Background: Metazoan signal recognition particle RNA: a 305-nucleotide RNA from Peronospora effusa. From the family's description: The signal recognition particle (SRP) is a universally conserved ribonucleoprotein. It is involved in the co-translational targeting of proteins to membranes. Its Rfam clan is "SRP clan". Taxonomically the source falls in Peronospora (Eukaryota, Stramenopiles, Peronosporomycetes, Peronosporaceae). The match comes from Rfam's covariance-model search (138 bits). By type it is a non-coding RNA gene.
[Rfam]
RNA sequence: ACCGGGUUGGGUGGCGCCAACUUGUAACGGAUACGCUUCUGUCCGGGUAGUAAGGUACGAGGGUUGUGGUCAGCAUUGGUAUGUCACUAUCCUCAGGAUGUGGAAGGCGCGUCCAUCUCAAACCAGGAGUAGACAUUGGGGCACUAACGUAAGUCAGUGCACCGAGGUCUCUAAGGAAAGGCAUACCGCCCCAGACUGGUUAACAGAGCAGGGAAAAGUCUUCGCUCUUGGUAGUGGGAGGAUCUCGUGCUAGAAUUCUGAUGUGAUAUAGCUUCGCUAUAAGCCACAAUUCGACUACCUUACGA
Numbered sequence: 001a002c003c004g005g006g007u008u009g010g011g012u013g014g015c016g017c018c019a020a021c022u023u024g025u026a027a028c029g030g031a032u033a034c035g036c037u038u039c040u041g042u043c044c045g046g047g048u049a050g051u052a053a054g055g056u057a058c059g060a061g062g063g064u065u066g067u068g069g070u071c072a073g074c075a076u077u078g079g080u081a082u083g084u085c086a087c088u089a090u091c092c093u094c095a096g097g098a099u100g101u102g103g104a105a106g107g108c109g110c111g112u113c114c115a116u117c118u119c120a121a122a123c124c125a126g127g128a129g130u131a132g133a134c135a136u137u138g139g140g141g142c143a144c145u146a147a148c149g150u151a152a153g154u155c156a157g158u159g160c161a162c163c164g165a166g167g168u169c170u171c172u173a174a175g176g177a178a179a180g181g182c183a184u185a186c187c188g189c190c191c192c193a194g195a196c197u198g199g200u201u202a203a204c205a206g207a208g209c210a211g212g213g214a215a216a217a218g219u220c221u222u223c224g225c226u227c228u229u230g231g232u233a234g235u236g237g238g239a240g241g242a243u244c245u246c247g248u249g250c251u252a253g254a255a256u257u258c259u260g261a262u263g264u265g266a267u268a269u270a271g272c273u274u275c276g277c278u279a280u281a282a283g284c285c286a287c288a289a290u291u292c293g294a295c296u297a298c299c300u301u302a303c304g305a
Base pairs, nucleotide, nucleotide: 001048002047003046004023005022006021007020008019009018010017028045029044030043031042032041050303051302052301053300054299055298056297057296061292062291063290064289065288066287067279068278069277070276072274073273080270081269082268083267084266085265086264088263089262090261091260095259096258097257098256099255101253106251107250108249109248110247111246113241114240116239117238118237119236120235122232123231124230125229126228127227128226129225130224131170132169133168134167136165137164138163139162141160142159143158144157145156147154148153171175178222179221180220181219182218189213190212191211196206197205198204